[Rfam]
RNA: MIR9563 microRNA precursor family
RNA sequence: GGAAUAUAAAAAACCGUCUCUUAACUUUUAACUAAAAAAACUAAGAAUCGAUUCUUAAAACUCUUAUUUAAGAACCGAUUUCUAGUUUUUUUAGUUAAAAAUUAAGAGACGGUUUCUUAUAUCCC
Numbered sequence: 001g002g003a004a005u006a007u008a009a010a011a012a013a014c015c016g017u018c019u020c021u022u023a024a025c026u027u028u029u030a031a032c033u034a035a036a037a038a039a040a041c042u043a044a045g046a047a048u049c050g051a052u053u054c055u056u057a058a059a060a061c062u063c064u065u066a067u068u069u070a071a072g073a074a075c076c077g078a079u080u081u082c083u084a085g086u087u088u089u090u091u092u093a094g095u096u097a098a099a100a101a102u103u104a105a106g107a108g109a110c111g112g113u114u115u116c117u118u119a120u121a122u123c124c125c
Base pairs, nucleotide, nucleotide: 001125002124004122005121006120007119008118009117011115012114013113014112015111016110017109018108019107020106021105022104023103024102026100027099028098029097030096031095032094033093034092035091036090037089038088039087041085042084043083045081046080047079